This 409-nucleotide RNA from Candidatus Epulonipiscium fishelsonii belongs to the Rfam family "Group I catalytic intron".
The base pairs follow the family's consensus structure, which is taken from published work.
The family has 12 seed sequences and 5,602 matches in Rfam 15.1.
It scores 57 bits against the family's covariance model.
The source organism's lineage runs through Bacteria, Bacillota, Clostridia, Lachnospirales and Candidatus Epulonipiscium.
[Rfam]
RNA sequence: GUAAGCAUAUAGAGAAAUUUGUAUGUAGAGAUGACUUAGAGUCAUCCAAUAUACCACUUGAAUUGCUGGGAACCCUUAAAGCUAACUAAACCACAACACAAUAAAGCAGGUUUACUAAAAUUAAAGUAACACAUAGUGUGAAGGUGACGAAAGUAGAAAAAAUUAGUUAGAUGGCAUAAUUAUAUUAUUUUCUAAAAAAAGAAAAAAUAUAUUGGUUAAAUCCUAAGUGUCGAGUAUAAGCAUUUAAAACGCUAUACUAAAUAGGCAAUCAGCAGCUAAGACUCGAGUAGAGUAAAGUUCAACGACUAUCCCUCUUGAGGGGAGUAGGCACAAGCGUGUCGAAGUGAGUGGCCCUUAGCACAUAAUGGUGAAGGAGAAGAUAUAGUCUGUGCUUAUGUGAAAGCAUAAG
Numbered sequence: 001g002u003a004a005g006c007a008u009a010u011a012g013a014g015a016a017a018u019u020u021g022u023a024u025g026u027a028g029a030g031a032u033g034a035c036u037u038a039g040a041g042u043c044a045u046c047c048a049a050u051a052u053a054c055c056a057c058u059u060g061a062a063u064u065g066c067u068g069g070g071a072a073c074c075c076u077u078a079a080a081g082c083u084a085a086c087u088a089a090a091c092c093a094c095a096a097c098a099c100a101a102u103a104a105a106g107c108a109g110g111u112u113u114a115c116u117a118a119a120a121u122u123a124a125a126g127u128a129a130c131a132c133a134u135a136g137u138g139u140g141a142a143g144g145u146g147a148c149g150a151a152a153g154u155a156g157a158a159a160a161a162a163u164u165a166g167u168u169a170g171a172u173g174g175c176a177u178a179a180u181u182a183u184a185u186u187a188u189u190u191u192c193u194a195a196a197a198a199a200a201g202a203a204a205a206a207a208u209a210u211a212u213u214g215g216u217u218a219a220a221u222c223c224u225a226a227g228u229g230u231c232g233a234g235u236a237u238a239a240g241c242a243u244u245u246a247a248a249a250c251g252c253u254a255u256a257c258u259a260a261a262u263a264g265g266c267a268a269u270c271a272g273c274a275g276c277u278a279a280g281a282c283u284c285g286a287g288u289a290g291a292g293u294a295a296a297g298u299u300c301a302a303c304g305a306c307u308a309u310c311c312c313u314c315u316u317g318a319g320g321g322g323a324g325u326a327g328g329c330a331c332a333a334g335c336g337u338g339u340c341g342a343a344g345u346g347a348g349u350g351g352c353c354c355u356u357a358g359c360a361c362a363u364a365a366u367g368g369u370g371a372a373g374g375a376g377a378a379g380a381u382a383u384a385g386u387c388u389g390u391g392c393u394u395a396u397g398u399g400a401a402a403g404c405a406u407a408a409g
Stems, first nucleotide, its partner, number of pairs: 005026009030035001054351004059346002064274006074265003275298002280293001281288002302388001304387005353374004358369002394407005